This 99-nucleotide part of an RNA from Acidilobus saccharovorans belongs to the Rfam family "Archaeal large subunit ribosomal RNA". The match comes from Rfam's covariance-model search (2663 bits).

[Rfam]
RNA sequence: GGCGUGGCCCGAAAGGGGUGAGGCCCCCGAAGGAAACUCGGGUGACCGAGGAGUACGAGGGGUGCUGACCGGGGUCACGCCUCCCGUCUUGAAACACGG
Numbered sequence: 001g002g003c004g005u006g007g008c009c010c011g012a013a014a015g016g017g018g019u020g021a022g023g024c025c026c027c028c029g030a031a032g033g034a035a036a037c038u039c040g041g042g043u044g045a046c047c048g049a050g051g052a053g054u055a056c057g058a059g060g061g062g063u064g065c066u067g068a069c070c071g072g073g074g075u076c077a078c079g080c081c082u083c084c085c086g087u088c089u090u091g092a093a094a095c096a097c098g099g
Stems, first nucleotide, its partner, number of pairs: 001081010015070002023065002025062004032056001037050005084099004

The family's consensus secondary structure is taken from published work.